[Rfam]
RNA: Fluoride riboswitch aptamer (crcB RNA motif)
RNA sequence: UUAACUAUAGGCAAUGAUGUCUGCCUUGAACCGCUACUGGAGCUGAUGACGUCUACUUUGAA
Numbered sequence: 001u002u003a004a005c006u007a008u009a010g011g012c013a014a015u016g017a018u019g020u021c022u023g024c025c026u027u028g029a030a031c032c033g034c035u036a037c038u039g040g041a042g043c044u045g046a047u048g049a050c051g052u053c054u055a056c057u058u059u060g061a062a
Base pairs, nucleotide, nucleotide: 010025011024012023013022016053017052018051019050020049021048033043034042035041